[Rfam]
RNA sequence: UUCCACUGCUCAAGUCAAGGCUUCUUUCUGCUUCUCGCAUUUCUCCAUGAAAGUAGCCUGUUACAGCGUUGGUAAAUUGACCAGGCUCGGCGCCUUCACGGUGCUCUUCGAUGGCUACCAUUCUGGUAGCUCAUCACCUUGAGCCACGGCGUGUCCCAUUUGAGUUGAGGUCUCGCAGUGACCUGCGGUCAAUCUCAUAGCAGACCUCUUAGUAAUGUUUCACACAUCA
Numbered sequence: 001u002u003c004c005a006c007u008g009c010u011c012a013a014g015u016c017a018a019g020g021c022u023u024c025u026u027u028c029u030g031c032u033u034c035u036c037g038c039a040u041u042u043c044u045c046c047a048u049g050a051a052a053g054u055a056g057c058c059u060g061u062u063a064c065a066g067c068g069u070u071g072g073u074a075a076a077u078u079g080a081c082c083a084g085g086c087u088c089g090g091c092g093c094c095u096u097c098a099c100g101g102u103g104c105u106c107u108u109c110g111a112u113g114g115c116u117a118c119c120a121u122u123c124u125g126g127u128a129g130c131u132c133a134u135c136a137c138c139u140u141g142a143g144c145c146a147c148g149g150c151g152u153g154u155c156c157c158a159u160u161u162g163a164g165u166u167g168a169g170g171u172c173u174c175g176c177a178g179u180g181a182c183c184u185g186c187g188g189u190c191a192a193u194c195u196c197a198u199a200g201c202a203g204a205c206c207u208c209u210u211a212g213u214a215a216u217g218u219u220u221c222a223c224a225c226a227u228c229a
Base pairs, nucleotide, nucleotide: 003072004071005070007068018059019058020057021056022055024053025052026051027050029039030038031037081149082148084145085144086143089105090104091103092102093101094100110135111134112133113132114130115129116128117127118126119125120124151223152222153221157217158216159215167208168207169206170205173203175201176200179191180190181189182188183187
The record is a 229-nucleotide RNA from Cyphellophora europaea, which matches "Small nucleolar RNA snR191" in Rfam. Gene Ontology terms of the family: nucleolus and RNA processing. Clan: SNORA74 clan. The literature on the family includes a 2003 paper in RNA by Badis et al., "A snoRNA that guides the two most conserved pseudouridine modifications within rRNA confers a growth advantage in yeast".